[Rfam]
RNA: Pseudomon-Rho RNA
Organism: Ectopseudomonas mendocina
RNA sequence: UUCGGCCUCGCUGCAUUUCCUUAUGCAGCCCUCUGCAUGCCGUCGCCGAUUCAUUCCUACUCGAACUCGUUCGCGAUCCUGUCGCCUUCUCUGCGGCGCGGC
Number, nucleotide and partner (000 for none) at each position: 001u000002u000003c000004g000005g000006c000007c000008u000009c000010g029011c028012u027013g026014c025015a024016u000017u000018u000019c000020c000021u000022u000023a000024u015025g014026c013027a012028g011029c010030c000031c000032u000033c000034u000035g000036c000037a000038u000039g102040c101041c100042g099043u000044c098045g097046c096047c095048g094049a000050u000051u000052c000053a000054u000055u000056c000057c000058u000059a000060c000061u000062c000063g000064a000065a000066c000067u000068c000069g000070u000071u000072c000073g085074c084075g083076a082077u081078c000079c000080u000081g077082u076083c075084g074085c073086c000087u000088u000089c000090u000091c000092u000093g000094c048095g047096g046097c045098g044099c042100g041101g040102c039